[Rfam]
RNA sequence: AGGGUGUAUUCCGAAAAACCAAUAAGAGAGUAGGAA
Numbered sequence: 001a002g003g004g005u006g007u008a009u010u011c012c013g014a015a016a017a018a019c020c021a022a023u024a025a026g027a028g029a030g031u032a033g034g035a036a
Base pairs, nucleotide, nucleotide: 003020004019005018010035011034012033
Dot-bracket structure: ..(((....[[[.....)))............]]].
Shown here is a 36-nucleotide sequence from Abyssalbus ytuae, a member of the family "DUF805b RNA". Taxonomically the source falls in Abyssalbus (Bacteria, Bacteroidota, Flavobacteriia, Flavobacteriaceae). Its Rfam clan is "DUF805 clan". A search with the family's covariance model found it, with a score of 38 bits. Pairs were carried over by alignment from the consensus structure, which is taken from published work. It is annotated as a cis-regulatory element.